[Rfam]
Description
The family of this 168-nucleotide RNA sequence from Medicago truncatula is "MIR2680 microRNA precursor family". Gene Ontology terms of the family: RISC complex and miRNA-mediated post-transcriptional gene silencing. The family's consensus secondary structure was predicted with RNAalifold. It scores 156 bits against the family's covariance model.

RNA sequence: UUAGGAUCUAGACCUGGCAUAUCUUCAUACGACCAUGCAAAAAUGUCUGGAUACUCUCGGAGAAGUUGAAAGAUCUUCUUCUUAACCCCUUCCUCUAGAGUGGCACCAACCUUGAUUUCUCGCUUGUUCUCUUCAGUACCUAUGUUGAUAAGUUCAAUCUCUUCCUGG
Numbered sequence: 001u002u003a004g005g006a007u008c009u010a011g012a013c014c015u016g017g018c019a020u021a022u023c024u025u026c027a028u029a030c031g032a033c034c035a036u037g038c039a040a041a042a043a044u045g046u047c048u049g050g051a052u053a054c055u056c057u058c059g060g061a062g063a064a065g066u067u068g069a070a071a072g073a074u075c076u077u078c079u080u081c082u083u084a085a086c087c088c089c090u091u092c093c094u095c096u097a098g099a100g101u102g103g104c105a106c107c108a109a110c111c112u113u114g115a116u117u118u119c120u121c122g123c124u125u126g127u128u129c130u131c132u133u134c135a136g137u138a139c140c141u142a143u144g145u146u147g148a149u150a151a152g153u154u155c156a157a158u159c160u161c162u163u164c165c166u167g168g
Stems, first nucleotide, its partner, number of pairs: 002167005010160003016154003020150004026144004031139001032137002040130001042128004048122002050119002052102005059096004064091002068087001072083002